[Rfam]
RNA sequence: GGGGGGUAUGUGAUCCUGGUGGACACCGCGGGCUUCAAACCCGAUCGUCCGGGCGGAUGACCGUCCGGAGGGAGGUUCGAUUCCUCCACCCUCUC
Numbered sequence: 001g002g003g004g005g006g007u008a009u010g011u012g013a014u015c016c017u018g019g020u021g022g023a024c025a026c027c028g029c030g031g032g033c034u035u036c037a038a039a040c041c042c043g044a045u046c047g048u049c050c051g052g053g054c055g056g057a058u059g060a061c062c063g064u065c066c067g068g069a070g071g072g073a074g075g076u077u078c079g080a081u082u083c084c085u086c087c088a089c090c091c092u093c094u095c
Stems, first nucleotide, its partner, number of pairs: 001094007010026003014023003027047001029043004049068005072086004
Dot-bracket structure: (((((((..(((.(((....))))))(.((((.......))))...).(((((..........)))))...((((.......)))).))))))).
A member of the RNA family "Selenocysteine transfer RNA" from Nitratifractor salsuginis, 95 nucleotides long. A search with the family's covariance model found it, with a score of 56 bits. NCBI's taxonomy places the organism under Bacteria, Pseudomonadati, Sulfurovaceae, Nitratifractor, Nitratifractor salsuginis.